The family of this 61-nucleotide RNA from Sediminibacillus albus is "Fluoride riboswitch aptamer (crcB RNA motif)". Taxonomically the source falls in Sediminibacillus (Bacteria, Bacillati, Bacillota, Bacillaceae). It scores 58 bits against the family's covariance model.

[Rfam]
RNA sequence: AACCUCAUAGGUGAUGGAGUUCACCUUUAACCGCCUGUUGGCUAAUGACUCCUGUCAGGAA
Numbered sequence: 001a002a003c004c005u006c007a008u009a010g011g012u013g014a015u016g017g018a019g020u021u022c023a024c025c026u027u028u029a030a031c032c033g034c035c036u037g038u039u040g041g042c043u044a045a046u047g048a049c050u051c052c053u054g055u056c057a058g059g060a061a
Base pairs, nucleotide, nucleotide: 010025011024012023013022016052017051018050019049020048021047033042034041035040